[Rfam]
Nucleotides: 083
Base pairs, nucleotide, nucleotide: 001079002078003077004076005075006074007070011068012067013066014065015064016061018059019058020057021056027052028051029050030049035044036043037042
Number, partner (000 for none) and nucleotide at each position: 001079g002078g003077u004076a005075u006074g007070c008000a009000g010000g011068c012067a013066a014065a015064a016061a017000c018059u019058c020057u021056g022000u023000a024000a025000c026000u027052u028051g029050g030049u031000c032000a033000g034000g035044u036043c037042a038000g039000a040000a041000a042037u043036g044035a045000a046000g047000c048000a049030g050029c051028c052027a053000c054000a055000c056021c057020a058019g059018a060000a061016u062000c063000u064015u065014u066013u067012u068011g069000g070007g071000u072000u073000g074006c075005a076004u077003a078002c079001c080000u081000a082000u083000u

A member of the RNA family "Bacterial small signal recognition particle RNA" from Wolbachia endosymbiont of Brugia malayi, 83 nucleotides long. Taxonomically the source falls in Wolbachia endosymbiont of Brugia malayi (Bacteria, Pseudomonadota, Rickettsiales, Anaplasmataceae). The base pairs follow the family's consensus structure, which is taken from published work. Gene Ontology terms of the family: SRP-dependent cotranslational protein targeting to membrane, signal sequence recognition and signal recognition particle, plasma membrane targeting. From the family's description: The signal recognition particle (SRP) is a universally conserved ribonucleoprotein involved in the co-translational targeting of proteins to membranes.